[Rfam]
Notes: The family of this 117-nucleotide RNA sequence from Flavobacterium sp. CS20 is "Group II catalytic intron D1-D4-2". Taxonomically the source falls in Flavobacterium (Bacteria, Bacteroidota, Flavobacteriales, Flavobacteriaceae). About the family: Group II introns are found in rRNA, tRNA and mRNA of organelles in fungi, plants and protists, and also in mRNA in bacteria.
RNA sequence: UAAAGAAUUGGACUAUCGAAUAAGUAGUGUAGUCUACUUUUUCAAACCGCCUUAAGGUGCUUUUGUAAAGAACAAGGGUAUUGAGCGUUAAGGUCAAGGCAUUUAAAGCCAUCCCGA
Numbered sequence: 001u002a003a004a005g006a007a008u009u010g011g012a013c014u015a016u017c018g019a020a021u022a023a024g025u026a027g028u029g030u031a032g033u034c035u036a037c038u039u040u041u042u043c044a045a046a047c048c049g050c051c052u053u054a055a056g057g058u059g060c061u062u063u064u065g066u067a068a069a070g071a072a073c074a075a076g077g078g079u080a081u082u083g084a085g086c087g088u089u090a091a092g093g094u095c096a097a098g099g100c101a102u103u104u105a106a107a108g109c110c111a112u113c114c115c116g117a
Stems, first nucleotide, its partner, number of pairs: 002016001004014002018043003022039002025036003050093006056082002059079003063075004102117002